A member of the RNA family "Small nucleolar RNA SNORA27" from Donacobius atricapilla, 131 nucleotides long. Rfam 15.1 lists 819 matches to the family in 543 species. From the family's description: ACA27 is a member of the H/ACA class of snoRNA that guide the sites of modification of uridines to pseudouridines.
Nucleotides: 131
Stems, first nucleotide, its partner, number of pairs: 035062005043054004070124006084109001085107001088104005
Number, partner (000 for none) and nucleotide at each position: 001000a002000c003000c004000c005000u006000c007000c008000u009000u010000u011000u012000c013000a014000c015000u016000u017000u018000g019000c020000c021000a022000g023000u024000u025000a026000g027000a028000c029000a030000g031000u032000u033000c034000u035062u036061g037060u038059c039058u040000u041000g042000a043054u044053u045052g046051g047000u048000c049000a050000u051046u052045c053044a054043a055000g056000g057000u058039g059038g060037g061036u062035a063000a064000a065000g066000u067000a068000u069000u070124u071123c072122c073121u074120u075119u076000u077000u078000a079000u080000a081000a082000c083000c084109c085107a086000a087000g088104c089103a090102a091101a092100u093000g094000a095000u096000g097000c098000u099000c100092a101091u102090u103089u104088g105000a106000c107085u108000u109084g110000g111000a112000u113000c114000c115000u116000g117000u118000c119075a120074g121073a122072g123071g124070a125000a126000a127000c128000a129000g130000c131000u
It is annotated as an H/ACA-box small nucleolar RNA. Taxonomically the source falls in Donacobius (Eukaryota, Opisthokonta, Vertebrata, Sarcopterygii).